[Rfam]
RNA sequence: CUUUCAAUCCUCUUUUUGAGAUUU
Numbered sequence: 001c002u003u004u005c006a007a008u009c010c011u012c013u014u015u016u017u018g019a020g021a022u023u024u
Stems, first nucleotide, its partner, number of pairs: 002021006
A member of the RNA family "CRISPR RNA direct repeat element" from Pyrobaculum arsenaticum, 24 nucleotides long. Taxonomically the source falls in Pyrobaculum arsenaticum (Archaea, Thermoproteota, Thermoproteales, Thermoproteaceae). Its family is annotated with defense response in the Gene Ontology. Pairs were carried over by alignment from the consensus structure, which was predicted with WAR.